The record is a 191-nucleotide RNA sequence from Thermohalobacter berrensis, which matches "Lysine riboswitch aptamer" in Rfam. Lineage of the source: Bacteria > Bacillati > Bacillota > Tissierellales > Thermohalobacter. It scores 134 bits against the family's covariance model.

RNA sequence: GUGUGUUAUAGAGGCUGCAGUUACAAAGAGUACUGCUGAUGAUGCUUAGGGAGGCUAUGAAUCAGUAGGAAAGGUGUAACUGCCGAAAUACAUAGUUUUUCCCUAAAGCUAUGUGUUGGGACUAUGUUGAAUAAGCAUAGUACUGUCAUCAGGUAAUUUGCCCAUUUACUUGAUGAAGAGCUGUAGCACAU
Numbered sequence: 001g002u003g004u005g006u007u008a009u010a011g012a013g014g015c016u017g018c019a020g021u022u023a024c025a026a027a028g029a030g031u032a033c034u035g036c037u038g039a040u041g042a043u044g045c046u047u048a049g050g051g052a053g054g055c056u057a058u059g060a061a062u063c064a065g066u067a068g069g070a071a072a073g074g075u076g077u078a079a080c081u082g083c084c085g086a087a088a089u090a091c092a093u094a095g096u097u098u099u100u101c102c103c104u105a106a107a108g109c110u111a112u113g114u115g116u117u118g119g120g121a122c123u124a125u126g127u128u129g130a131a132u133a134a135g136c137a138u139a140g141u142a143c144u145g146u147c148a149u150c151a152g153g154u155a156a157u158u159u160g161c162c163c164a165u166u167u168a169c170u171u172g173a174u175g176a177a178g179a180g181c182u183g184u185a186g187c188a189c190a191u
Base pairs, nucleotide, nucleotide: 006186007185008184009183010182011181017083018082019081020080021079022078023077024076025075033068034067035066036065037064038063039062040061087117088116089115090114091113092112093111094110095109096108097107098106118144119143121141122140123139124138125137126136127135128134146176147175148174149173150172151171152170153169154168155167156166